This 85-nucleotide RNA from Gossypium australe belongs to the Rfam family "MIR397 microRNA precursor family".
RNA sequence: AAAAGAAACAUCGUUGAGUGCAGUGUUGAUGAAUUCAUCAAAACAGAAAAAAAGCUCAUCAACGCUGCACUCAACAAUGUUUUUU
Numbered sequence: 001a002a003a004a005g006a007a008a009c010a011u012c013g014u015u016g017a018g019u020g021c022a023g024u025g026u027u028g029a030u031g032a033a034u035u036c037a038u039c040a041a042a043a044c045a046g047a048a049a050a051a052a053a054g055c056u057c058a059u060c061a062a063c064g065c066u067g068c069a070c071u072c073a074a075c076a077a078u079g080u081u082u083u084u085u
Stems, first nucleotide, its partner, number of pairs: 006082006013075016030058003
The base pairs follow the family's consensus structure, which was predicted with WAR. Rfam links the family to the GO terms miRNA-mediated post-transcriptional gene silencing and RISC complex.